[Rfam]
RNA sequence: AAGUCUCCUACCUUGCGCGCUAAUCAGUGACCGGGGCUGGUUUUUUAUAUACAGUCAGGUACCUGAAGUAGCGCGCGUGGUGGCAGACA
Numbered sequence: 001a002a003g004u005c006u007c008c009u010a011c012c013u014u015g016c017g018c019g020c021u022a023a024u025c026a027g028u029g030a031c032c033g034g035g036g037c038u039g040g041u042u043u044u045u046u047a048u049a050u051a052c053a054g055u056c057a058g059g060u061a062c063c064u065g066a067a068g069u070a071g072c073g074c075g076c077g078u079g080g081u082g083g084c085a086g087a088c089a
Stems, first nucleotide, its partner, number of pairs: 009082004014077001016075007030060003035056004